[Rfam]
RNA sequence: ACAGAUGGCGCGGGGUGUCGUUAAAACGGCUGAGAAUUACCCGUCGAACUUGAACUGGUUCAUACCAGCGUAAGGACUGCCUCAAUUCAAAUUC
Numbered sequence: 001a002c003a004g005a006u007g008g009c010g011c012g013g014g015g016u017g018u019c020g021u022u023a024a025a026a027c028g029g030c031u032g033a034g035a036a037u038u039a040c041c042c043g044u045c046g047a048a049c050u051u052g053a054a055c056u057g058g059u060u061c062a063u064a065c066c067a068g069c070g071u072a073a074g075g076a077c078u079g080c081c082u083c084a085a086u087u088c089a090a091a092u093u094c
Stems, first nucleotide, its partner, number of pairs: 007081004011043004017030005049074004055068004
Annotation:
The family of this 94-nucleotide RNA from Legionella quinlivanii is "TPP riboswitch aptamer (THI element)". A search with the family's covariance model found it, with a score of 67 bits. The family's consensus secondary structure is taken from published work. The organism belongs to Legionella, within Bacteria.